[Rfam]
Nucleotides: 127
Base pairs, nucleotide, nucleotide: 036103037102038101040099041098042097047091049089050088051087052086057083058082060081061080062079063077065075066074067073
Number, partner (000 for none) and nucleotide at each position: 001000u002000u003000c004000a005000u006000u007000c008000u009000a010000u011000a012000u013000u014000u015000g016000a017000a018000c019000c020000a021000a022000u023000a024000a025000u026000g027000a028000a029000a030000a031000c032000a033000a034000u035000a036103u037102u038101a039000a040099a041098u042097a043000a044000u045000a046000c047091a048000u049089g050088g051087u052086g053000g054000u055000g056000g057083a058082a059000a060081u061080u062079u063077c064000g065075a066074a067073a068000u069000c070000u071000c072000a073067u074066u075065u076000c077063g078000u079062g080061a081060a082058u083057u084000a085000a086052c087051g088050c089049u090000a091047u092000u093000c094000g095000u096000a097042u098041a099040u100000u101038u102037a103036a104000a105000c106000a107000a108000a109000a110000u111000a112000u113000c114000u115000c116000a117000a118000a119000a120000g121000g122000c123000u124000u125000g126000u127000c
Shown here is a 127-nucleotide RNA from Hanstruepera neustonica, a member of the family "Bacteroidete tryptophan peptide leader RNA". Gene Ontology terms of the family: regulation of gene expression and S-adenosylmethionine metabolic process. Pairs were carried over by alignment from the consensus structure, which is taken from published work. Rfam classes the family as a cis-regulatory leader.